Record summary: Rfam assigns this 37-nucleotide RNA sequence from Nocardia transvalensis to the family "CRISPR RNA direct repeat element". NCBI's taxonomy places the organism under Bacteria, Actinomycetota, Actinomycetes, Nocardiaceae, Nocardia. It scores 46 bits against the family's covariance model.
RNA sequence: GCAGCGCCGGGCGUCCGCGCUCGGCGAGAAUCUCAGC
Numbered sequence: 001g002c003a004g005c006g007c008c009g010g011g012c013g014u015c016c017g018c019g020c021u022c023g024g025c026g027a028g029a030a031u032c033u034c035a036g037c
Base pairs, nucleotide, nucleotide: 005026006025007024008023009022010021011020012019013018